Record summary: The record is a 250-nucleotide RNA from Roseospira goensis, which matches "permuted transfer-messenger RNA" in Rfam. About the family: Bacterial tmRNA, also known as 10Sa RNA or SsrA, is named for its dual tRNA and mRNA-like properties. It scores 142 bits against the family's covariance model. Taxonomically the source falls in Roseospira (Bacteria, Pseudomonadati, Pseudomonadota, Rhodospirillaceae). The base pairs follow the family's consensus structure, which is taken from published work.
[Rfam]
RNA sequence: GACGCUAAACCCUGUCUGGAAUAAGCGUAGUGGACCCGGGGGCAGUACCCGGCGCCUCCACCAUUUGCCGAACCAGGGAGCGGUUCCGCGACCGGAGGCGGAACCGCGACCUUGGGGCGAACCAUGGGGGCGAAACAGGAUCGACACGCGUGGUAAAGAGGCAGGUUGCGUCCGGCAUGGCACCACCGUUAUCGGGCCAAACGCAAUAGUUGCCAACGACAACUAUGCUCCGGAAGCUGCCGCCGCGUAA
Numbered sequence: 001g002a003c004g005c006u007a008a009a010c011c012c013u014g015u016c017u018g019g020a021a022u023a024a025g026c027g028u029a030g031u032g033g034a035c036c037c038g039g040g041g042g043c044a045g046u047a048c049c050c051g052g053c054g055c056c057u058c059c060a061c062c063a064u065u066u067g068c069c070g071a072a073c074c075a076g077g078g079a080g081c082g083g084u085u086c087c088g089c090g091a092c093c094g095g096a097g098g099c100g101g102a103a104c105c106g107c108g109a110c111c112u113u114g115g116g117g118c119g120a121a122c123c124a125u126g127g128g129g130g131c132g133a134a135a136c137a138g139g140a141u142c143g144a145c146a147c148g149c150g151u152g153g154u155a156a157a158g159a160g161g162c163a164g165g166u167u168g169c170g171u172c173c174g175g176c177a178u179g180g181c182a183c184c185a186c187c188g189u190u191a192u193c194g195g196g197c198c199a200a201a202c203g204c205a206a207u208a209g210u211u212g213c214c215a216a217c218g219a220c221a222a223c224u225a226u227g228c229u230c231c232g233g234a235a236g237c238u239g240c241c242g243c244c245g246c247g248u249a250a
Stems, first nucleotide, its partner, number of pairs: 001172005014162004026150003030147003036052005053132007173188003